[Rfam]
RNA: FMN riboswitch aptamer (RFN element)
RNA sequence: AUUAUCCUUCGGGGCAGGGUGAAAUUCCCGACCGACGGUGAUGCUUAGGAAGUUGUUUAUUUACUUCCUUUGUCAUAAAGAAGGAAUCCAUUAACUUUAUGGCAAUGAGAACUUGUUAAGAAUAUGUAAGAUGUUCUCAUAAGCUAAGUCCGUGACCUGUGUAUACAAGCGGCAAAGAACAACUGUAUACAUGGCUGAUCUGGUGAGAGACCAGAACCGACAGUAAAGUCUGGAUGGGAGAAGGAGAGC
Numbered sequence: 001a002u003u004a005u006c007c008u009u010c011g012g013g014g015c016a017g018g019g020u021g022a023a024a025u026u027c028c029c030g031a032c033c034g035a036c037g038g039u040g041a042u043g044c045u046u047a048g049g050a051a052g053u054u055g056u057u058u059a060u061u062u063a064c065u066u067c068c069u070u071u072g073u074c075a076u077a078a079a080g081a082a083g084g085a086a087u088c089c090a091u092u093a094a095c096u097u098u099a100u101g102g103c104a105a106u107g108a109g110a111a112c113u114u115g116u117u118a119a120g121a122a123u124a125u126g127u128a129a130g131a132u133g134u135u136c137u138c139a140u141a142a143g144c145u146a147a148g149u150c151c152g153u154g155a156c157c158u159g160u161g162u163a164u165a166c167a168a169g170c171g172g173c174a175a176a177g178a179a180c181a182a183c184u185g186u187a188u189a190c191a192u193g194g195c196u197g198a199u200c201u202g203g204u205g206a207g208a209g210a211c212c213a214g215a216a217c218c219g220a221c222a223g224u225a226a227a228g229u230c231u232g233g234a235u236g237g238g239a240g241a242a243g244g245a246g247a248g249c
Stems, first nucleotide, its partner, number of pairs: 003247001005245006017029003031229002033219002035153004157194011199215005221232003